A member of the RNA family "Purine riboswitch aptamer" from Natronincola peptidivorans, 102 nucleotides long.
RNA sequence: UCAAAAAACUAAAUUGCUUCUCGUAUAAUUUUGGAGAUAUGGUCCAUAAGUUUCUACCAGACUACCGUAAACAGUCUGACUACGGGAGAUUUGUUUAAUAGG
Numbered sequence: 001u002c003a004a005a006a007a008a009c010u011a012a013a014u015u016g017c018u019u020c021u022c023g024u025a026u027a028a029u030u031u032u033g034g035a036g037a038u039a040u041g042g043u044c045c046a047u048a049a050g051u052u053u054c055u056a057c058c059a060g061a062c063u064a065c066c067g068u069a070a071a072c073a074g075u076c077u078g079a080c081u082a083c084g085g086g087a088g089a090u091u092u093g094u095u096u097a098a099u100a101g102g
Stems, first nucleotide, its partner, number of pairs: 018088008029049002032046004058078006
It scores 88 bits against the family's covariance model. The organism belongs to Natronincola, within Bacteria.